A member of the RNA family "Small nucleolar RNA SNORD30" from Denticeps clupeoides, 72 nucleotides long. For this family Rfam cites "A mammalian gene with introns instead of exons generating stable RNA products" (Tycowski et al., Nature, 1996). NCBI's taxonomy places the organism under Eukaryota, Deuterostomia, Actinopteri, Clupeocephala, Denticeps. Rfam classes the family as a C/D-box small nucleolar RNA. Gene Ontology terms of the family: RNA processing and nucleolus.
RNA sequence: GCACGUGAUGAUUUUCAUUAUGGAAUCUCGUUCGUCUGAACUCCUGUUGAGACAAAUUUAAAUCUGAUGCUU
Numbered sequence: 001g002c003a004c005g006u007g008a009u010g011a012u013u014u015u016c017a018u019u020a021u022g023g024a025a026u027c028u029c030g031u032u033c034g035u036c037u038g039a040a041c042u043c044c045u046g047u048u049g050a051g052a053c054a055a056a057u058u059u060a061a062a063u064c065u066g067a068u069g070c071u072u
Base pairs, nucleotide, nucleotide: 026052027051028050029049030048033046034045